[Rfam]
RNA: MIR2619 microRNA precursor family
RNA sequence: AAACAGCCCCUAUGUAUUGGAUCUUUGGCAGUUUUGGCCCCCAAGGCCACUUUUGACUUAGUCACAAUGGUUGACACGUGGCACCUCACUUAAGGGAUGUGAGUGCCACGUACUAAGUCAAAAGUGGCCUUGGGGGCCAAAACUGCCAAAGAUCCAAUACAUAGGGGGCUGUUU
Numbered sequence: 001a002a003a004c005a006g007c008c009c010c011u012a013u014g015u016a017u018u019g020g021a022u023c024u025u026u027g028g029c030a031g032u033u034u035u036g037g038c039c040c041c042c043a044a045g046g047c048c049a050c051u052u053u054u055g056a057c058u059u060a061g062u063c064a065c066a067a068u069g070g071u072u073g074a075c076a077c078g079u080g081g082c083a084c085c086u087c088a089c090u091u092a093a094g095g096g097a098u099g100u101g102a103g104u105g106c107c108a109c110g111u112a113c114u115a116a117g118u119c120a121a122a123a124g125u126g127g128c129c130u131u132g133g134g135g136g137c138c139a140a141a142a143c144u145g146c147c148a149a150a151g152a153u154c155c156a157a158u159a160c161a162u163a164g165g166g167g168g169c170u171g172u173u174u
Stems, first nucleotide, its partner, number of pairs: 001174002004171005011163034076111002079108006